The family of this 406-nucleotide RNA sequence from Qipengyuania gaetbuli is "Bacterial RNase P class A". The match comes from Rfam's covariance-model search (302 bits). The family's RNA type in Rfam is ribozyme. Ribonuclease P (RNase P) is a ubiquitous endoribonuclease, found in archaea, bacteria and eukarya as well as chloroplasts and mitochondria.
RNA sequence: CCAGGGGGCCGGGCAGCCGCGGAUGCUAGCAUCCGAGGAAAGUCCGGGCUCCACGAAACCAGGGUGGCGGGUAACGCCCGCCGGGGGUGACCCCAGGGAAAGUGCCGCAGAAAGCAAACCGCCGAUGGCCCGCUUGCGGGAUCAGGCAAGGAUGAAAGGGUGCGGUAAGAGCGCACCGGGGCGCUGGUAACAGGGCUCGCACGGUAAACCCCACCCGGAGCAAGGCCGAAUAGGGGCGGCACGUUCCCGAAAGGGAGCAGAUGCGUUUCGCAUCGACCGCCCGGGUUGGCUGCUUGAGCCAUGGGGCAACCCAUGGCCCAGACGAAUGGCUGCCGCCGCGGAUACGGUCCGGUCUUCCGGAUACCGUCUGCGGAGACAGAACCCGGCUUACAGGCCCCCUGGCAUC
Numbered sequence: 001c002c003a004g005g006g007g008g009c010c011g012g013g014c015a016g017c018c019g020c021g022g023a024u025g026c027u028a029g030c031a032u033c034c035g036a037g038g039a040a041a042g043u044c045c046g047g048g049c050u051c052c053a054c055g056a057a058a059c060c061a062g063g064g065u066g067g068c069g070g071g072u073a074a075c076g077c078c079c080g081c082c083g084g085g086g087g088u089g090a091c092c093c094c095a096g097g098g099a100a101a102g103u104g105c106c107g108c109a110g111a112a113a114g115c116a117a118a119c120c121g122c123c124g125a126u127g128g129c130c131c132g133c134u135u136g137c138g139g140g141a142u143c144a145g146g147c148a149a150g151g152a153u154g155a156a157a158g159g160g161u162g163c164g165g166u167a168a169g170a171g172c173g174c175a176c177c178g179g180g181g182c183g184c185u186g187g188u189a190a191c192a193g194g195g196c197u198c199g200c201a202c203g204g205u206a207a208a209c210c211c212c213a214c215c216c217g218g219a220g221c222a223a224g225g226c227c228g229a230a231u232a233g234g235g236g237c238g239g240c241a242c243g244u245u246c247c248c249g250a251a252a253g254g255g256a257g258c259a260g261a262u263g264c265g266u267u268u269c270g271c272a273u274c275g276a277c278c279g280c281c282c283g284g285g286u287u288g289g290c291u292g293c294u295u296g297a298g299c300c301a302u303g304g305g306g307c308a309a310c311c312c313a314u315g316g317c318c319c320a321g322a323c324g325a326a327u328g329g330c331u332g333c334c335g336c337c338g339c340g341g342a343u344a345c346g347g348u349c350c351g352g353u354c355u356u357c358c359g360g361a362u363a364c365c366g367u368c369u370g371c372g373g374a375g376a377c378a379g380a381a382c383c384c385g386g387c388u389u390a391c392a393g394g395c396c397c398c399c400u401g402g403c404a405u406c
Base pairs, nucleotide, nucleotide: 001402002401003400004399005398006397007396008395009394010393011391012334013333014332015331016330017329018328020035021034022033023032024031025030040389041388042387044386045385046384047383048382049220050219051218052217058268062216063215064214065213066212067081068080069079070078071077082096083094084093085092086091097211098210102209103208104205105204106203119151120150121147122146123145126144127143128142130140131139159177160176161175162174163173164172178200179198180197181196182195184193185192186191224291225290226289227288234282235281236280237279238278239277260274261273262272263271264270298317299316300315301314302313303312304311305310